Shown here is a 75-nucleotide RNA sequence from Haemonchus placei, a member of the family "mir-5928 microRNA precursor family". Rfam 15.1 lists 1,672 matches to the family in 12 species. Lineage of the source: Eukaryota > Opisthokonta > Eumetazoa > Ecdysozoa > Haemonchus.
[Rfam]
RNA sequence: GGCACAAACUUGAAGUAGAGUAGUUUAGUAGGGUCAGCCGAUCCGACUAAUCUACACUACUUCAAAUUCAGGCUC
Dot-bracket structure: (((...((..((((((((.((((.(((((..((((....))))..))))).)))).))))))))..))...))).